[Rfam]
RNA sequence: GAUAAUAUAGGAAUCAUUGUUCGUAUAAUUUCGAGGAUAAGGCUCGAGAGUCUCUACCAGGUUACCGUAAAUAACUUGACUACGAACGAUGUGAAGAGAAUA
Numbered sequence: 001g002a003u004a005a006u007a008u009a010g011g012a013a014u015c016a017u018u019g020u021u022c023g024u025a026u027a028a029u030u031u032c033g034a035g036g037a038u039a040a041g042g043c044u045c046g047a048g049a050g051u052c053u054c055u056a057c058c059a060g061g062u063u064a065c066c067g068u069a070a071a072u073a074a075c076u077u078g079a080c081u082a083c084g085a086a087c088g089a090u091g092u093g094a095a096g097a098g099a100a101u102a
Stems, first nucleotide, its partner, number of pairs: 018088008029049007058078007